[Rfam]
RNA: Plastid-rps12 3UTR RNA
Organism: Burmannia nepalensis
RNA sequence: UUUCCAUUGGUGUAAACCCAAUCAUCUUGAUGUGAGUAAGAUCAGAAGCAAUUCCCCAUUGGUAGCAAAUGGUUAUUCAUUAAGCGGAGGAAAUUAUA
Numbered sequence: 001u002u003u004c005c006a007u008u009g010g011u012g013u014a015a016a017c018c019c020a021a022u023c024a025u026c027u028u029g030a031u032g033u034g035a036g037u038a039a040g041a042u043c044a045g046a047a048g049c050a051a052u053u054c055c056c057c058a059u060u061g062g063u064a065g066c067a068a069a070u071g072g073u074u075a076u077u078c079a080u081u082a083a084g085c086g087g088a089g090g091a092a093a094u095u096a097u098a
Stems, first nucleotide, its partner, number of pairs: 007021004054089001056087002058080002061077006